[Rfam]
RNA: BsrG
Organism: Ureibacillus manganicus
RNA sequence: UAUAAUAGUUUUGGGCUCAAAGGUGGUUGGCUCACUCCAGUAAGUAGAAAGGAGUGGUGCUAUGACAGUCUCAGAAGCACUAAUGUUGGCAAUUUCAUUUUCAACAUUAGUCAUUGCGAUCCUGUCUUUUAAUGUAAAAAAAUAACCCACCUUUGAGUUGGUAGCUCAGAUGGGUUAGGUAAUUCCUUCUUUUUCUGGAGCCAAUCCCUUGUUGGGACCGACUAUUAUACGGACUGUUUGAUGUUGCAGCAUCAAGCA
Number, nucleotide and partner (000 for none) at each position: 001u229002a228003u227004a226005a225006u000007a223008g222009u221010u000011u000012u203013g202014g201015g000016c157017u156018c155019a154020a153021a152022g151023g150024u000025g147026g146027u145028u144029g000030g000031c000032u057033c056034a055035c054036u053037c052038c051039a000040g000041u000042a000043a000044g000045u000046a000047g000048a000049a000050a000051g038052g037053a036054g035055u034056g033057g032058u000059g000060c000061u000062a000063u000064g126065a125066c124067a123068g122069u000070c000071u000072c000073a000074g000075a000076a000077g000078c000079a000080c000081u000082a000083a000084u000085g000086u000087u000088g000089g000090c000091a000092a000093u000094u000095u000096c000097a000098u000099u000100u118101u000102c116103a115104a000105c000106a000107u000108u000109a000110g000111u000112c000113a000114u000115u103116g102117c000118g100119a000120u000121c000122c068123u067124g066125u065126c064127u000128u000129u000130u000131a000132a000133u000134g000135u000136a000137a000138a000139a000140a000141a000142a000143u000144a028145a027146c026147c025148c000149a000150c023151c022152u021153u020154u019155g018156a017157g016158u000159u000160g000161g000162u000163a000164g000165c000166u000167c000168a187169g186170a000171u000172g000173g000174g000175u000176u000177a000178g000179g000180u000181a000182a000183u000184u000185c000186c169187u168188u000189c000190u000191u000192u000193u000194u000195c000196u000197g000198g000199a000200g000201c014202c013203a012204a000205u217206c216207c215208c000209u000210u000211g000212u000213u000214g000215g207216g206217a205218c000219c000220g000221a009222c008223u007224a000225u005226u004227a003228u002229a001230c000231g000232g000233a000234c000235u258236g257237u256238u255239u254240g253241a252242u251243g250244u249245u000246g000247c000248a000249g244250c243251a242252u241253c240254a239255a238256g237257c236258a235